[Rfam]
RNA sequence: CUUGUAUUCCAUCAAUAGGAUACGUGCAUUUCUGGUAACGGAAUUGUGCGAAGCUAUCCUGACGAUAUAGCCCGUAAAGAGAUUCUGUGAAGAAUUUCUGCUUCGUACCAUCGUCAGGUGCGGGGGAGU
Numbered sequence: 001c002u003u004g005u006a007u008u009c010c011a012u013c014a015a016u017a018g019g020a021u022a023c024g025u026g027c028a029u030u031u032c033u034g035g036u037a038a039c040g041g042a043a044u045u046g047u048g049c050g051a052a053g054c055u056a057u058c059c060u061g062a063c064g065a066u067a068u069a070g071c072c073c074g075u076a077a078a079g080a081g082a083u084u085c086u087g088u089g090a091a092g093a094a095u096u097u098c099u100g101c102u103u104c105g106u107a108c109c110a111u112c113g114u115c116a117g118g119u120g121c122g123g124g125g126g127a128g129u
Stems, first nucleotide, its partner, number of pairs: 002015003018059005023050006030043005078099004085092002104122006
The record is a 129-nucleotide RNA from Cyclobacterium lianum, which matches "Group II catalytic intron D1-D4-7" in Rfam. Its family is annotated with Group II intron splicing in the Gene Ontology. A search with the family's covariance model found it, with a score of 65 bits. Lineage of the source: Bacteria > Pseudomonadati > Bacteroidota > Cytophagales > Cyclobacterium. Group II introns are found in rRNA, tRNA and mRNA of organelles in fungi, plants and protists, and also in mRNA in bacteria. The pairing is the family consensus, mapped onto this sequence.